[Rfam]
RNA sequence: CGCGCAUUUUGCCCAGGCGGAGCUCGACCGCCGGUUCGAGCGAUGAUCGCGUUCAUUGACGAUCACCGCGAGGCGCAUGGGGUCGAGCCGAUCUGCAAGGUGUUGCAAAUCGCUCCG
Numbered sequence: 001c002g003c004g005c006a007u008u009u010u011g012c013c014c015a016g017g018c019g020g021a022g023c024u025c026g027a028c029c030g031c032c033g034g035u036u037c038g039a040g041c042g043a044u045g046a047u048c049g050c051g052u053u054c055a056u057u058g059a060c061g062a063u064c065a066c067c068g069c070g071a072g073g074c075g076c077a078u079g080g081g082g083u084c085g086a087g088c089c090g091a092u093c094u095g096c097a098a099g100g101u102g103u104u105g106c107a108a109a110u111c112g113c114u115c116c117g
Stems, first nucleotide, its partner, number of pairs: 016032005078117005089112002092109001094107005
Source information
ALIL pseudoknot: a 117-nucleotide RNA from Mesorhizobium hungaricum. Pairs were carried over by alignment from the consensus structure, which is taken from published work. Lineage of the source: Bacteria > Alphaproteobacteria > Hyphomicrobiales > Phyllobacteriaceae > Mesorhizobium. Its family is annotated with positive regulation of translational frameshifting in the Gene Ontology.